[Rfam]
RNA sequence: GCAGGGAGAGAAGGCAAGAUAUUGGCAUAGCUGUCGUUUUGAAAACCCUGCUAUGCCACCAAAUUGCCAUCUUUCUCGGCA
Number, nucleotide and partner (000 for none) at each position: 001g000002c000003a000004g000005g076006g075007a074008g073009a072010g071011a070012a000013g068014g067015c066016a065017a064018g000019a000020u061021a000022u000023u058024g057025g056026c055027a054028u053029a052030g051031c050032u000033g000034u000035c000036g000037u000038u000039u000040u000041g000042a000043a000044a000045a000046c000047c000048c000049u000050g031051c030052u029053a028054u027055g026056c025057c024058a023059c000060c000061a020062a000063a000064u017065u016066g015067c014068c013069a000070u011071c010072u009073u008074u007075c006076u005077c000078g000079g000080c000081a000
Rfam assigns this 81-nucleotide RNA sequence from Neogobius melanostomus to the family "mir-31 microRNA precursor family".
Rfam links the family to the GO terms RISC complex and gene silencing by miRNA.
The organism belongs to Neogobius, within Eukaryota.
The match comes from Rfam's covariance-model search (63 bits).